[Rfam]
Rfam assigns this 110-nucleotide sequence from Falsochrobactrum ovis to the family "Alphaproteobacterial ar14". Its family is annotated with biological process involved in symbiotic interaction in the Gene Ontology. The family has 118 seed sequences and 784 matches in Rfam 15.1. The organism belongs to Falsochrobactrum, within Bacteria. Rfam classes the family as a small RNA.
RNA sequence: GGCCAUCGAGCUCACUCCUCCUCCCAGAGCUCGAUGCGGAUACGGCACUCCUCCUCCUAACGCCGUAUUCAAGAUCAGGCCGCGCAUCCUCCUCCCGCGCGGCCUUUUUC
Number, nucleotide and partner (000 for none) at each position: 001g000002g000003c000004c036005a035006u034007c033008g032009a031010g030011c029012u028013c027014a000015c000016u000017c000018c000019u000020c000021c000022u000023c000024c000025c000026a000027g013028a012029g011030c010031u009032c008033g007034a006035u005036g004037c000038g070039g069040a068041u067042a066043c065044g064045g063046c062047a000048c000049u000050c000051c000052u000053c000054c000055u000056c000057c000058u000059a000060a000061c000062g046063c045064c044065g043066u042067a041068u040069u039070c038071a000072a000073g000074a000075u000076c000077a105078g104079g103080c102081c101082g100083c099084g098085c097086a000087u000088c000089c000090u000091c000092c000093u000094c000095c000096c000097g085098c084099g083100c082101g081102g080103c079104c078105u077106u000107u000108u000109u000110c000